[Rfam]
RNA sequence: AUGUCAUCCCGUGAGGUGACGAAGACGCAGAAAUAUAUGAAGUUCUUUAAGAAUGGAAUAAUCUUUUUUAAAGAAGUCUUACUCUGAGAGCCUGUUGCUGUA
Numbered sequence: 001a002u003g004u005c006a007u008c009c010c011g012u013g014a015g016g017u018g019a020c021g022a023a024g025a026c027g028c029a030g031a032a033a034u035a036u037a038u039g040a041a042g043u044u045c046u047u048u049a050a051g052a053a054u055g056g057a058a059u060a061a062u063c064u065u066u067u068u069u070a071a072a073g074a075a076g077u078c079u080u081a082c083u084c085u086g087a088g089a090g091c092c093u094g095u096u097g098c099u100g101u102a
Stems, first nucleotide, its partner, number of pairs: 002021005009016002027101004032096004044074010076091002079088002
RNA: Streptococcus sRNA SpF44
Organism: Streptococcus oralis